[Rfam]
RNA sequence: GUGGGCGGAAGCUCAUUGCAGAGGUCACACGCUGAGUGCUCGUCACUCCACCAAUCACCUCUGGGAAGGUCUGAGACAAGAGCCAAUAGUUACCCUUGCAGGGUAUCAUCUGAUACGGGUGAGCGAGUGUUCAGAAAACAUGGGCCAUCGUGAGAAGUCGUAGCAGGAGAAGCCCGGUGGCGCAUACUAAGAGCACCACCCGGUGGAUGUGACUCUCACCGGCUUGAAAUCACUCGCGGCUAGCGGAAGAGUGCAAUGGAUGAGAUGGGGCACAGCUCCACAACCCAAUUCAGACUACUCUCCCCCCAC
Numbered sequence: 001g002u003g004g005g006c007g008g009a010a011g012c013u014c015a016u017u018g019c020a021g022a023g024g025u026c027a028c029a030c031g032c033u034g035a036g037u038g039c040u041c042g043u044c045a046c047u048c049c050a051c052c053a054a055u056c057a058c059c060u061c062u063g064g065g066a067a068g069g070u071c072u073g074a075g076a077c078a079a080g081a082g083c084c085a086a087u088a089g090u091u092a093c094c095c096u097u098g099c100a101g102g103g104u105a106u107c108a109u110c111u112g113a114u115a116c117g118g119g120u121g122a123g124c125g126a127g128u129g130u131u132c133a134g135a136a137a138a139c140a141u142g143g144g145c146c147a148u149c150g151u152g153a154g155a156a157g158u159c160g161u162a163g164c165a166g167g168a169g170a171a172g173c174c175c176g177g178u179g180g181c182g183c184a185u186a187c188u189a190a191g192a193g194c195a196c197c198a199c200c201c202g203g204u205g206g207a208u209g210u211g212a213c214u215c216u217c218a219c220c221g222g223c224u225u226g227a228a229a230u231c232a233c234u235c236g237c238g239g240c241u242a243g244c245g246g247a248a249g250a251g252u253g254c255a256a257u258g259g260a261u262g263a264g265a266u267g268g269g270g271c272a273c274a275g276c277u278c279c280a281c282a283a284c285c286c287a288a289u290u291c292a293g294a295c296u297a298c299u300c301u302c303c304c305c306c307c308a309c
Base pairs, nucleotide, nucleotide: 001309002308003307004306007303008302009301012264013263014262015261016260017259020062021061022060023059024058034048035047036046037045038044071293072292073291074290075289081241082240083239084238091105092104093103094102095101106122107121108120109119110118111117123237124236125235126234127233128232129231143223266280267279268278269277270276271275
RNA: Nuclear RNase P
Organism: Lates calcarifer